Annotation: This 45-nucleotide sequence from Patiria miniata belongs to the Rfam family "Histone 3' UTR stem-loop".
RNA sequence: CAACCGGUUCUUUUCAGAACCACACUUCUUUCAAAAUAGAUUAUU
Dot-bracket structure: .....((((((....))))))........................

The family's RNA type in Rfam is cis-regulatory element.